Small nucleolar RNA snoR8a: an 89-nucleotide RNA sequence from Striga asiatica. A search with the family's covariance model found it, with a score of 73 bits. The family's RNA type in Rfam is C/D-box small nucleolar RNA. For this family Rfam cites "Multiple snoRNA gene clusters from Arabidopsis" (Brown et al., RNA, 2001). The base pairs follow the family's consensus structure, which was predicted with WAR. The source organism's lineage runs through Eukaryota, Gunneridae, Orobanchaceae, Buchnereae and Striga.
Nucleotides: 089
Base pairs, nucleotide, nucleotide: 003089004088006086007085
Number, partner (000 for none) and nucleotide at each position: 001000u002000g003089g004088u005000u006086u007085g008000c009000g010000a011000u012000g013000a014000u015000u016000a017000g018000a019000a020000a021000u022000a023000u024000a025000a026000u027000u028000c029000c030000u031000c032000g033000u034000u035000c036000u037000g038000a039000a040000u041000g042000c043000u044000a045000g046000u047000g048000g049000c050000a051000u052000g053000a054000c055000a056000g057000a058000c059000u060000u061000u062000g063000u064000u065000c066000a067000a068000c069000a070000c071000c072000c073000a074000u075000a076000g077000a078000a079000u080000c081000u082000g083000a084000g085007c086006a087000a088004a089003u